[Rfam]
RNA sequence: AUAUGACUCCCGAGCACCGGGCAGUGAGGAAUUGGGACGCAGGCGCGGACCCAGGGAUCACUCCCCCAGCACGGGUAUGAAACCAUAGGGGACCUGUCUGGGUGGCCUCCGGGAUAGGCACUCCCCAAGGUAAUAUGUGGUGUGGAUG
Numbered sequence: 001a002u003a004u005g006a007c008u009c010c011c012g013a014g015c016a017c018c019g020g021g022c023a024g025u026g027a028g029g030a031a032u033u034g035g036g037a038c039g040c041a042g043g044c045g046c047g048g049a050c051c052c053a054g055g056g057a058u059c060a061c062u063c064c065c066c067c068a069g070c071a072c073g074g075g076u077a078u079g080a081a082a083c084c085a086u087a088g089g090g091g092a093c094c095u096g097u098c099u100g101g102g103u104g105g106c107c108u109c110c111g112g113g114a115u116a117g118g119c120a121c122u123c124c125c126c127a128a129g130g131u132a133a134u135a136u137g138u139g140g141u142g143u144g145g146a147u148g
Stems, first nucleotide, its partner, number of pairs: 009137001016131003019126003024121003032111001034109003038047003050105002052102001055099004062092005
RNA: Connexin-32 internal ribosome entry site (IRES)